[Rfam]
PhotoRC-II RNA: a 96-nucleotide sequence. Rfam's curators put it in the seed alignment.

RNA sequence: UCAUCAAUGUUUGCUCCCGCUAACCGAGACCUAUGGGAGGGUAAAUUACGUCUCUCAUAUCCACCAGUGAAGGGAUUGGUGGAAAUAUAGUAUCGC
Numbered sequence: 001u002c003a004u005c006a007a008u009g010u011u012u013g014c015u016c017c018c019g020c021u022a023a024c025c026g027a028g029a030c031c032u033a034u035g036g037g038a039g040g041g042u043a044a045a046u047u048a049c050g051u052c053u054c055u056c057a058u059a060u061c062c063a064c065c066a067g068u069g070a071a072g073g074g075a076u077u078g079g080u081g082g083a084a085a086u087a088u089a090g091u092a093u094c095g096c
Stems, first nucleotide, its partner, number of pairs: 014039006026054005061082007